[Rfam]
Record summary:
Plastid-psbA-1 3UTR RNA: a 112-nucleotide sequence from Drosophyllum lusitanicum. The family's consensus secondary structure was predicted with LocARNA. The family's RNA type in Rfam is cis-regulatory element. The source organism's lineage runs through Eukaryota, Streptophyta, Pentapetalae, Drosophyllaceae and Drosophyllum. From the family's description: Plastid psbA-1 is a non-coding RNA (ncRNA) present in plastids. It was identified in inverted repeat sequences in the 3 prime untranslate region (3UTR) of photosystem II quinone-binding protein (psbA).
RNA sequence: UCGAAGUUCCAUCUACAAAUGGAUAGGACUUCGGUUUAGUGUAGAUGACUUAUUGAAAGUUUAGUAGCAAUAACCAAAUUCGUGAUAAAACAAGAAUUUGGUUAUUGCUACU
Number, nucleotide and partner (000 for none) at each position: 001u000002c000003g000004a000005a000006g000007u000008u023009c022010c021011a020012u019013c000014u000015a000016c000017a000018a000019a012020u011021g010022g009023a008024u000025a000026g000027g000028a000029c000030u000031u000032c000033g000034g000035u000036u000037u000038a000039g000040u000041g000042u000043a000044g000045a000046u000047g000048a000049c000050u000051u000052a000053u000054u000055g000056a000057a000058a000059g000060u000061u000062u000063a112064g111065u110066a109067g108068c107069a106070a105071u104072a103073a102074c000075c100076a099077a098078a000079u096080u095081c094082g000083u092084g000085a000086u000087a000088a000089a000090a000091c000092a083093a000094g081095a080096a079097u000098u077099u076100g075101g000102u073103u072104a071105u070106u069107g068108c067109u066110a065111c064112u063